Rfam assigns this 46-nucleotide RNA from Robertmurraya siralis to the family "PreQ1 (pre queuosine) riboswitch aptamer". About the family: This family is a bacterial riboswitch that binds to the metabolite preQ1, an intermediate in the biosynthesis of the modified nucleoside queuosine from GTP. One example of this riboswitch is located in the leader of the Bacillus subtilis ykvJKLM (queCDEF) operon which encodes four genes necessary for queuosine production. PreQ1 binding to the riboswitch aptamer is thought to induce premature transcription termination within the leader to down-regulate expression of these genes.
[Rfam]
RNA sequence: CCAUAAGAGGUUCAUAGCUUCACCCUCUAUAAAAAACUAUGGAUAC
Numbered sequence: 001c002c003a004u005a006a007g008a009g010g011u012u013c014a015u016a017g018c019u020u021c022a023c024c025c026u027c028u029a030u031a032a033a034a035a036a037c038u039a040u041g042g043a044u045a046c
Stems, first nucleotide, its partner, number of pairs: 006028005015039002
Dot-bracket structure: .....(((((....[[.......))))).........]].......
Source information
On this family, see Reader et al., J Biol Chem 2004: "Identification of four genes necessary for biosynthesis of the modified nucleoside queuosine". The match comes from Rfam's covariance-model search (43 bits).